The record is a 183-nucleotide RNA from Prevotella sp. tc2-28, which matches "Bacteroidales-1 6S-Bacteroidales RNA suggested" in Rfam.
The match comes from Rfam's covariance-model search (127 bits).
About the family: Bacteroidales-1 was first reported in a comparative genomics-based approach of genome and metagenome sequences from Weinberg et al. 2010 In a high-resolution transcriptome map study of Bacteroides thetaiotaomicron, Ryan et al. 2020 report this sRNA as 6S RNA homologue of Bacteroides, in the study they obtain evidence of small product RNAs (pRNAs) related to 6S function.
The base pairs follow the family's consensus structure, which is taken from published work.
On this family, see Ryan et al., Nat Commun 2020: "A high-resolution transcriptome map identifies small RNA regulation of metabolism in the gut microbe Bacteroides thetaiotaomicron".
RNA sequence: GGGCGUGCCGGUUCGAUCGGGAUACUCAUCAAAUUAAAUCGAAAACCGAGCUGACUUCUCUUGCCAAUGGCGGGCCACAUCUUCCUUCGGGGAGAAGCCGGAAGGCCGGUGGAUUACAAAAGCGGAGAGCACUCUAAUCUUGUAACACAGGAGUUUUCAUCACAUCACUGGGCGCCCCUUUUC
Numbered sequence: 001g002g003g004c005g006u007g008c009c010g011g012u013u014c015g016a017u018c019g020g021g022a023u024a025c026u027c028a029u030c031a032a033a034u035u036a037a038a039u040c041g042a043a044a045a046c047c048g049a050g051c052u053g054a055c056u057u058c059u060c061u062u063g064c065c066a067a068u069g070g071c072g073g074g075c076c077a078c079a080u081c082u083u084c085c086u087u088c089g090g091g092g093a094g095a096a097g098c099c100g101g102a103a104g105g106c107c108g109g110u111g112g113a114u115u116a117c118a119a120a121a122g123c124g125g126a127g128a129g130c131a132c133u134c135u136a137a138u139c140u141u142g143u144a145a146c147a148c149a150g151g152a153g154u155u156u157u158c159a160u161c162a163c164a165u166c167a168c169u170g171g172g173c174g175c176c177c178c179u180u181u182u183c
Stems, first nucleotide, its partner, number of pairs: 055129002058127002061125004068118002075112004083092003097106003